[Rfam]
RNA sequence: UGUCCUCAGGCCCACGGUGCAGUGCUGCAUCUCUGGUCAACUGGGAGUCUGAGAUGAAGCACUGUAGCUCGGGAAUGGGGGAGU
Numbered sequence: 001u002g003u004c005c006u007c008a009g010g011c012c013c014a015c016g017g018u019g020c021a022g023u024g025c026u027g028c029a030u031c032u033c034u035g036g037u038c039a040a041c042u043g044g045g046a047g048u049c050u051g052a053g054a055u056g057a058a059g060c061a062c063u064g065u066a067g068c069u070c071g072g073g074a075a076u077g078g079g080g081g082a083g084u
Stems, first nucleotide, its partner, number of pairs: 011073003016068001018066009028056006035049002037046002
Dot-bracket structure: ..........(((..(.(((((((((.((((((.((((......)).)).)))))).))))))))).)..)))...........